This 128-nucleotide RNA sequence from Streptomyces tardus belongs to the Rfam family "Streptomyces-metH RNA". The organism belongs to Streptomyces, within Bacteria.

[Rfam]
RNA sequence: GCGGUCCACGAAGCGAAAUGACUGACCGCACAUGCGACCGAGACCUAUACGCUGGUCCGCGUACCUCUGCCGUGACUGCGGCGGGAGGUAAAGCCGACAGCCGUCGCACCCCAGGGAGCACUCGCAUG
Numbered sequence: 001g002c003g004g005u006c007c008a009c010g011a012a013g014c015g016a017a018a019u020g021a022c023u024g025a026c027c028g029c030a031c032a033u034g035c036g037a038c039c040g041a042g043a044c045c046u047a048u049a050c051g052c053u054g055g056u057c058c059g060c061g062u063a064c065c066u067c068u069g070c071c072g073u074g075a076c077u078g079c080g081g082c083g084g085g086a087g088g089u090a091a092a093g094c095c096g097a098c099a100g101c102c103g104u105c106g107c108a109c110c111c112c113a114g115g116g117a118g119c120a121c122u123c124g125c126a127u128g
Base pairs, nucleotide, nucleotide: 062090063089064088065087067084068083069082070081071080072079093107094106096105097104098103